Shown here is a 139-nucleotide RNA from Shouchella clausii, a member of the family "Ribosomal protein L10 leader".
The base pairs follow the family's consensus structure, which was predicted with CMfinder.
Rfam links the family to the GO term regulation of gene expression.
Rfam's curators put it in the seed alignment.
It is annotated as a cis-regulatory leader.
Rfam's curators write: This family is a putative r-protein leader autoregulatory structure found in B. subtilis and other low-GC Gram-positive bacteria. It is located in the 5' untranslated regions of mRNAs encoding ribosomal proteins L10 and L12 (rplJ-rplL).
RNA sequence: GGAAAUAGAAUAGUCAUACCGUAGACAGCAGGUGCUUCAUAGCUUAAAUAUCCUGCCGAGGUGAGCGAAUAGAUCUCUUUUUACUAGAGCUUAAAGCCCUCGUGUGUCUUCGUGCCACGAGGGCUUUUCUAUGGAAACU
Numbered sequence: 001g002g003a004a005a006u007a008g009a010a011u012a013g014u015c016a017u018a019c020c021g022u023a024g025a026c027a028g029c030a031g032g033u034g035c036u037u038c039a040u041a042g043c044u045u046a047a048a049u050a051u052c053c054u055g056c057c058g059a060g061g062u063g064a065g066c067g068a069a070u071a072g073a074u075c076u077c078u079u080u081u082u083a084c085u086a087g088a089g090c091u092u093a094a095a096g097c098c099c100u101c102g103u104g105u106g107u108c109u110u111c112g113u114g115c116c117a118c119g120a121g122g123g124c125u126u127u128u129c130u131a132u133g134g135a136a137a138c139u
Stems, first nucleotide, its partner, number of pairs: 028056005034043003096124009